[Rfam]
RNA sequence: CCAGGGGCUUACGCCCCUGGCUACAGUAUGUCGCCCCUGCGGGGCU
Numbered sequence: 001c002c003a004g005g006g007g008c009u010u011a012c013g014c015c016c017c018u019g020g021c022u023a024c025a026g027u028a029u030g031u032c033g034c035c036c037c038u039g040c041g042g043g044g045c046u
Stems, first nucleotide, its partner, number of pairs: 001020008033045005